The record is a 102-nucleotide RNA from Pueribacillus theae, which matches "Purine riboswitch aptamer" in Rfam. Lineage of the source: Bacteria > Bacillota > Bacilli > Bacillaceae > Pueribacillus.
[Rfam]
RNA sequence: ACAAAAAUAUAUCUUUUUCGUCGUAUAAUUUCAGGGAUAGGGCCUGAAAGUUUCUACCAAGCUGCCGUAAAUUGCUUGACUGCGAUUUUUAGACUAAAGAAA
Numbered sequence: 001a002c003a004a005a006a007a008u009a010u011a012u013c014u015u016u017u018u019c020g021u022c023g024u025a026u027a028a029u030u031u032c033a034g035g036g037a038u039a040g041g042g043c044c045u046g047a048a049a050g051u052u053u054c055u056a057c058c059a060a061g062c063u064g065c066c067g068u069a070a071a072u073u074g075c076u077u078g079a080c081u082g083c084g085a086u087u088u089u090u091a092g093a094c095u096a097a098a099g100a101a102a
Base pairs, nucleotide, nucleotide: 020086021085022084023083024082025081029049030048031047032046033045034044035043058078059077060076061075062074064072
Pairs were carried over by alignment from the consensus structure, which is taken from published work.